[Rfam]
RNA: Ribosomal protein L20 leader
Organism: Aminipila terrae
Nucleotides: 123
Stems, first nucleotide, its partner, number of pairs: 011027006029053003034048003037044001089110009
Number, partner (000 for none) and nucleotide at each position: 001000g002000u003000a004000a005000u006000a007000a008000a009000g010000a011027a012026g013025a014024a015023g016022u017000u018000a019000u020000c021000c022016g023015c024014u025013u026012c027011u028000c029053a030052c031051c032000u033000u034048a035047u036046u037044g038000g039000u040000c041000u042000g043000g044037c045000u046036g047035a048034u049000a050000g051031g052030g053029u054000u055000a056000a057000u058000a059000a060000a061000a062000c063000a064000a065000c066000u067000g068000u069000a070000a071000c072000a073000c074000u075000u076000a077000u078000g079000u080000g081000u082000u083000u084000u085000g086000u087000g088000g089110a090109g091108c092107g093106g094105g095104u096103a097102c098000u099000g100000u101000a102097g103096u104095a105094u106093c107092c108091g109090c110089u111000u112000a113000u114000u115000u116000u117000a118000u119000u120000u121000g122000c123000a